RNA sequence: UUAAAGGGUCGGUUGGCUAAAUAUGCCACUCUAGUCCGUUGUAAGGCUAGUGUUCUAUGGCUAUCAAGACAUAUGGCCGACAUAAUUUGUGAAAAUUGAUAUAGAGUUGGCUCGUUUGGCCGACCCUUCA
Numbered sequence: 001u002u003a004a005a006g007g008g009u010c011g012g013u014u015g016g017c018u019a020a021a022u023a024u025g026c027c028a029c030u031c032u033a034g035u036c037c038g039u040u041g042u043a044a045g046g047c048u049a050g051u052g053u054u055c056u057a058u059g060g061c062u063a064u065c066a067a068g069a070c071a072u073a074u075g076g077c078c079g080a081c082a083u084a085a086u087u088u089g090u091g092a093a094a095a096u097u098g099a100u101a102u103a104g105a106g107u108u109g110g111c112u113c114g115u116u117u118g119g120c121c122g123a124c125c126c127u128u129c130a
Stems, first nucleotide, its partner, number of pairs: 008081005014028004029052001031050006053076002056073004101128001104125001106124007
Dot-bracket structure: .......(((((.((((.......))))(.((((((........)))))).)((.((((..........)))).)))))))...................(..(.(((((((.....))))))))..)..
The record is a 130-nucleotide sequence from Sesamum indicum, which matches "U11 spliceosomal RNA" in Rfam. The match comes from Rfam's covariance-model search (57 bits). NCBI's taxonomy places the organism under Eukaryota, Viridiplantae, Magnoliopsida, Lamiales, Sesamum. Its Rfam clan is "U1 clan". Pairs were carried over by alignment from the consensus structure, which is taken from published work. Rfam 15.1 lists 2,595 matches to the family in 1,202 species. The literature on the family includes a 1988 paper in Proc Natl Acad Sci U S A by Montzka and Steitz, "Additional low-abundance human small nuclear ribonucleoproteins: U11, U12, etc".